[Rfam]
RNA sequence: GUCAGAUCGAUGAUGUCAUAUGAAAAACUGCGUUAUCUAUCUUAAAAUCUCCGAAAUAGGAGUUGCAGAAAGCUAAACAGAAAACGCUGAGAUCUGUU
Numbered sequence: 001g002u003c004a005g006a007u008c009g010a011u012g013a014u015g016u017c018a019u020a021u022g023a024a025a026a027a028c029u030g031c032g033u034u035a036u037c038u039a040u041c042u043u044a045a046a047a048u049c050u051c052c053g054a055a056a057u058a059g060g061a062g063u064u065g066c067a068g069a070a071a072g073c074u075a076a077a078c079a080g081a082a083a084a085c086g087c088u089g090a091g092a093u094c095u096g097u098u
Stems, first nucleotide, its partner, number of pairs: 001098001003096005
Dot-bracket structure: (.(((((....................................................................................))))).)
Shown here is a 98-nucleotide sequence from Eutrema salsugineum, a member of the family "Small nucleolar RNA snoR27". Rfam classes the family as a C/D-box small nucleolar RNA. The family has 6 seed sequences and 649 matches in Rfam 15.1. A search with the family's covariance model found it, with a score of 67 bits. The family is grouped with related families in Rfam's "snR68 clan".